[Rfam]
RNA sequence: AGUGUGAGUAGAAGCGGUUAGAUACCAAUGAUGGUGUCGGGACAUUGCUCAUAGU
Numbered sequence: 001a002g003u004g005u006g007a008g009u010a011g012a013a014g015c016g017g018u019u020a021g022a023u024a025c026c027a028a029u030g031a032u033g034g035u036g037u038c039g040g041g042a043c044a045u046u047g048c049u050c051a052u053a054g055u
Base pairs, nucleotide, nucleotide: 005051006050007049008048009047010046015040018042019041021038022037023036024035025034026033027032
Background: A member of the RNA family "Xanthine riboswitch aptamer (NMT1 RNA)" from Vibrio ziniensis, 55 nucleotides long.